[Rfam]
The record is a 42-nucleotide RNA sequence from Nonomuraea coxensis, which matches "L31-Actinobacteria ribosomal protein leader" in Rfam. The family's consensus secondary structure is taken from published work. Rfam's curators put it in the seed alignment. Rfam classes the family as a cis-regulatory leader.
RNA sequence: GCGGUUCCGGUUCACGCCAUGCUCAGCGGCGACCCGGCGGCC
Numbered sequence: 001g002c003g004g005u006u007c008c009g010g011u012u013c014a015c016g017c018c019a020u021g022c023u024c025a026g027c028g029g030c031g032a033c034c035c036g037g038c039g040g041c042c
Stems, first nucleotide, its partner, number of pairs: 003042003007037004015031004021027002
Dot-bracket structure: ..(((.((((....((((..((...))))))..))))..)))